[Rfam]
RNA sequence: AUCGUAGAUACAACUUUAGAGUACAUCUAAAUUUUGUAUCUAUGUCGGUAAUGAUUUAUUUGAUUAUAAAUAAUUGAACCCACAUAGAGCGGAUAGUCUAUGUGGGUUUUUGUAUGA
Numbered sequence: 001a002u003c004g005u006a007g008a009u010a011c012a013a014c015u016u017u018a019g020a021g022u023a024c025a026u027c028u029a030a031a032u033u034u035u036g037u038a039u040c041u042a043u044g045u046c047g048g049u050a051a052u053g054a055u056u057u058a059u060u061u062g063a064u065u066a067u068a069a070a071u072a073a074u075u076g077a078a079c080c081c082a083c084a085u086a087g088a089g090c091g092g093a094u095a096g097u098c099u100a101u102g103u104g105g106g107u108u109u110u111u112g113u114a115u116g117a
Stems, first nucleotide, its partner, number of pairs: 003044009015031005079106010

About this RNA: trpB ncRNA motif: a 117-nucleotide sequence from Vagococcus elongatus. By type it is a cis-regulatory element. The match comes from Rfam's covariance-model search (64 bits). A reference for the family is Narunsky et al. (2024), "The discovery of novel noncoding RNAs in 50 bacterial genomes", Nucleic Acids Res. Taxonomically the source falls in Vagococcus (Bacteria, Bacillati, Bacillota, Enterococcaceae). Rfam links the family to the GO term regulation of gene expression. The base pairs follow the family's consensus structure, which is taken from published work. About the family: trpB ncRNA motif was reported as a strong cis regulatory motif candidate, with potential to be a cis regulatory riboswitch type, it have been identified in Firmicutes and Fusobacteria.